The record is a 59-nucleotide sequence from Rattus norvegicus, which matches "U7 small nuclear RNA" in Rfam.
RNA sequence: UAGUAAUUCCUUUUUAGAAUUUGUUUGGCAGGUUUUCUGACAUUUGUCAGAAAGUCCAC
Numbered sequence: 001u002a003g004u005a006a007u008u009c010c011u012u013u014u015u016a017g018a019a020u021u022u023g024u025u026u027g028g029c030a031g032g033u034u035u036u037c038u039g040a041c042a043u044u045u046g047u048c049a050g051a052a053a054g055u056c057c058a059c
Base pairs, nucleotide, nucleotide: 031056032055033054034053035052036051037050038049039048040047041046
From the family's description: Animal histone pre-mRNAs are spliced by a different mechanism than nuclear pre-mRNAs and self-splicing introns. This processing involves the U7 snRNP, which contains only one RNA species: U7. The 5' end of U7 RNA is thought to base-pair to a conserved spacer element downstream of the cleavage site in histone pre-mRNA. This family contains a number of annotated U7 pseudogenes.
The family has 49 seed sequences and 10,439 matches in Rfam 15.1.
A search with the family's covariance model found it, with a score of 41 bits.
The base pairs follow the family's consensus structure, which was predicted with PFOLD.